[Rfam]
RNA: PreQ1 (pre queuosine) riboswitch aptamer
RNA sequence: AUGGAAGAGGUUCGCGAACUCCCUCUAUAAAAAACUAUUUACCU
Numbered sequence: 001a002u003g004g005a006a007g008a009g010g011u012u013c014g015c016g017a018a019c020u021c022c023c024u025c026u027a028u029a030a031a032a033a034a035c036u037a038u039u040u041a042c043c044u
Stems, first nucleotide, its partner, number of pairs: 006026005016036001